[Rfam]
RNA sequence: AUCUCUGUUAGAUAUGUUUGAUAUAAUUGGUGGUUAAUGGUUAAAAGUCCACCAAGUAUCAAACAUGUCACUACAGAGGU
Numbered sequence: 001a002u003c004u005c006u007g008u009u010a011g012a013u014a015u016g017u018u019u020g021a022u023a024u025a026a027u028u029g030g031u032g033g034u035u036a037a038u039g040g041u042u043a044a045a046a047g048u049c050c051a052c053c054a055a056g057u058a059u060c061a062a063a064c065a066u067g068u069c070a071c072u073a074c075a076g077a078g079g080u
Base pairs, nucleotide, nucleotide: 005076006075007074008073011069012068013067014066015065016064017063018062019061020060021059022058023057024056029053030052031051032050033049
Dot-bracket structure: ....((((..((((((((((((((....(((((...............)))))..))))))))))))))...))))....

The family of this 80-nucleotide sequence from Lottia gigantea is "mir-190 microRNA precursor family". The literature on the family includes a 2006 paper in Nucleic Acids Res by Kloosterman et al., "Cloning and expression of new microRNAs from zebrafish". Clan: mir-50 clan. The base pairs follow the family's consensus structure, which was predicted with RNAalifold. Rfam links the family to the GO terms miRNA-mediated post-transcriptional gene silencing and RISC complex.